[Rfam]
SAM-III riboswitch aptamer (SMK box): a 92-nucleotide RNA sequence from Ligilactobacillus hayakitensis. The source organism's lineage runs through Bacteria, Bacilli, Lactobacillaceae, Ligilactobacillus and Ligilactobacillus hayakitensis. The match comes from Rfam's covariance-model search (74 bits). On this family, see Fuchs et al., Proc Natl Acad Sci U S A 2007: "S-adenosylmethionine directly inhibits binding of 30S ribosomal subunits to the SMK box translational riboswitch RNA".

RNA sequence: AAUCGUUACAAAUCAUUCCCGAAAGGAUUCGUUUAUUACGAAGAUGCCUUGUAACCAAAAUAUAUGAAUUAAUGGGGGAAUUAUACAAAAUG
Numbered sequence: 001a002a003u004c005g006u007u008a009c010a011a012a013u014c015a016u017u018c019c020c021g022a023a024a025g026g027a028u029u030c031g032u033u034u035a036u037u038a039c040g041a042a043g044a045u046g047c048c049u050u051g052u053a054a055c056c057a058a059a060a061u062a063u064a065u066g067a068a069u070u071a072a073u074g075g076g077g078g079a080a081u082u083a084u085a086c087a088a089a090a091u092g
Stems, first nucleotide, its partner, number of pairs: 016080005023050004028042005055075002